[Rfam]
RNA: Bacteroidetes FopS (family of paralogous sRNAs)
RNA sequence: GUGUUUUUCAUAGUAUUAGAUUAAGAUAAAGGUUUAAACGGGAAGCGAUGUCGUGAGACAUCGCUUCUUUUUUUGUA
Numbered sequence: 001g002u003g004u005u006u007u008u009c010a011u012a013g014u015a016u017u018a019g020a021u022u023a024a025g026a027u028a029a030a031g032g033u034u035u036a037a038a039c040g041g042g043a044a045g046c047g048a049u050g051u052c053g054u055g056a057g058a059c060a061u062c063g064c065u066u067c068u069u070u071u072u073u074u075g076u077a
Base pairs, nucleotide, nucleotide: 046063047062048061049060050059051058052057